[Rfam]
This 172-nucleotide RNA from Triticum aestivum belongs to the Rfam family "MIR2118 microRNA precursor family". On this family, see Johnson et al., Genome Res 2009: "Clusters and superclusters of phased small RNAs in the developing inflorescence of rice". Rfam links the family to the GO terms RISC complex and miRNA-mediated post-transcriptional gene silencing. The family's consensus secondary structure was predicted with RNAalifold. Taxonomically the source falls in Triticum (Eukaryota, Viridiplantae, Spermatophyta, Pooideae). Rfam 15.1 lists 2,377 matches to the family in 45 species. The match comes from Rfam's covariance-model search (120 bits).
RNA sequence: UCUAGAAAGAGGAAGAAAGAGAGGGCGUAAGAGCAGUGUGAAUGAGAACAUAGAGGAAACACUAACUUUACUAGUUCUUUACCACUUUCCUUGUGGUGGAAAUUUAGUUUGGCAUUUCCUGAUGCCUCUCAUUCCUAUUGUUCUUAGGCGCUCCUUCCUAUUCCUUUUUGUU
Numbered sequence: 001u002c003u004a005g006a007a008a009g010a011g012g013a014a015g016a017a018a019g020a021g022a023g024g025g026c027g028u029a030a031g032a033g034c035a036g037u038g039u040g041a042a043u044g045a046g047a048a049c050a051u052a053g054a055g056g057a058a059a060c061a062c063u064a065a066c067u068u069u070a071c072u073a074g075u076u077c078u079u080u081a082c083c084a085c086u087u088u089c090c091u092u093g094u095g096g097u098g099g100a101a102a103u104u105u106a107g108u109u110u111g112g113c114a115u116u117u118c119c120u121g122a123u124g125c126c127u128c129u130c131a132u133u134c135c136u137a138u139u140g141u142u143c144u145u146a147g148g149c150g151c152u153c154c155u156u157c158c159u160a161u162u163c164c165u166u167u168u169u170g171u172u
Stems, first nucleotide, its partner, number of pairs: 009163003013159001015157003021153003026148001028146008037137002040134008049124003053120001055119005